This 88-nucleotide RNA from Chaetorhynchus papuensis belongs to the Rfam family "Small nucleolar RNA SNORD71".
Rfam describes the family as follows. snoRNA HBII-239 belongs to the family of C/D snoRNAs.It is the human orthologue of the mouse MBII-239 described and is predicted to guide 2'O-ribose methylation of 5.8S rRNA on residue U14.
The match comes from Rfam's covariance-model search (37 bits).
The source organism's lineage runs through Eukaryota, Dipnotetrapodomorpha, Aves, Australaves and Chaetorhynchus.
For this family Rfam cites "RNomics: an experimental approach that identifies 201 candidates for novel, small, non-messenger RNAs in mouse" (Huttenhofer et al., EMBO J, 2001).
[Rfam]
Nucleotides: 088
Base pairs, nucleotide, nucleotide: 002087003086004085005084006083007082008081010077011076013034014033015032016031018029036064038062039061040060044056045055
Number, partner (000 for none) and nucleotide at each position: 001000u002087g003086u004085g005084g006083g007082a008081u009000u010077g011076g012000g013034g014033g015032a016031u017000g018029a019000a020000g021000g022000u023000g024000g025000g026000a027000a028000a029018u030000g031016a032015u033014c034013c035000a036064a037000a038062a039061u040060c041000u042000g043000a044056g045055c046000a047000u048000c049000u050000c051000g052000c053000a054000g055045g056044c057000u058000u059000u060040g061039a062038u063000g064036u065000g066000c067000u068000c069000u070000g071000a072000g073000g074000u075000g076011c077010u078000g079000c080000c081008a082007u083006u084005c085004c086003a087002c088000a